This 103-nucleotide sequence from Vulpes vulpes belongs to the Rfam family "mir-8834 microRNA precursor family". Taxonomically the source falls in Vulpes (Eukaryota, Eumetazoa, Vertebrata, Mammalia). Gene Ontology terms of the family: RISC complex and miRNA-mediated post-transcriptional gene silencing. Pairs were carried over by alignment from the consensus structure, which was predicted with RNAalifold.

RNA sequence: AGGAACAACAGCAGGGGCGGAGGCCAGCUCUGGAGCCCUGGAUUCAGCUCCUGCAGUAACUACGGAGCUCUCCCUCUGCAGGGCCUGGAUGCUCUGAGGGCGG
Numbered sequence: 001a002g003g004a005a006c007a008a009c010a011g012c013a014g015g016g017g018c019g020g021a022g023g024c025c026a027g028c029u030c031u032g033g034a035g036c037c038c039u040g041g042a043u044u045c046a047g048c049u050c051c052u053g054c055a056g057u058a059a060c061u062a063c064g065g066a067g068c069u070c071u072c073c074c075u076c077u078g079c080a081g082g083g084c085c086u087g088g089a090u091g092c093u094c095u096g097a098g099g100g101c102g103g
Stems, first nucleotide, its partner, number of pairs: 002095003006091002009087003012083001017076001019074002022071002026069007034061001038056003